Molybdenum/Tungsten riboswitch aptamer (Moco RNA motif): a 121-nucleotide RNA from Alkaliphilus peptidifermentans.
[Rfam]
RNA sequence: UUAAUUGAAUAACUCCGAGUCUAUACUCCUAAAGAGCUUUCUCUACGGCGUAUAGACCUAUAGGGUGUUAUAGGAAACUAUAAUGCCUCCCAGUGUGGAAAGGAGCGUAUAUAUAAACUAC
Numbered sequence: 001u002u003a004a005u006u007g008a009a010u011a012a013c014u015c016c017g018a019g020u021c022u023a024u025a026c027u028c029c030u031a032a033a034g035a036g037c038u039u040u041c042u043c044u045a046c047g048g049c050g051u052a053u054a055g056a057c058c059u060a061u062a063g064g065g066u067g068u069u070a071u072a073g074g075a076a077a078c079u080a081u082a083a084u085g086c087c088u089c090c091c092a093g094u095g096u097g098g099a100a101a102g103g104a105g106c107g108u109a110u111a112u113a114u115a116a117a118c119u120a121c
Base pairs, nucleotide, nucleotide: 004114013105014104015103016102019057020056021055022054023053024052025051026050028048029047033044034043035042036041063088064087065086066085067084068083069082070081071080072079073078089098090097
A search with the family's covariance model found it, with a score of 80 bits. The family's consensus secondary structure is taken from published work. The source organism's lineage runs through Bacteria, Bacillati, Clostridia, Alkaliphilus and Alkaliphilus peptidifermentans.